[Rfam]
RNA sequence: UCACUGCUGUGUCUUAUGGCUUUCUAUUCCUAUGUGAUUCUCUCAGACAUGUCACAUAGGGUCUAAAGCCAUGGGCUACGGAGUGGG
Numbered sequence: 001u002c003a004c005u006g007c008u009g010u011g012u013c014u015u016a017u018g019g020c021u022u023u024c025u026a027u028u029c030c031u032a033u034g035u036g037a038u039u040c041u042c043u044c045a046g047a048c049a050u051g052u053c054a055c056a057u058a059g060g061g062u063c064u065a066a067a068g069c070c071a072u073g074g075g076c077u078a079c080g081g082a083g084u085g086g087g
Stems, first nucleotide, its partner, number of pairs: 002086001005083001007081005013075011028061010
RNA: mir-135 microRNA precursor family
Organism: Menidia menidia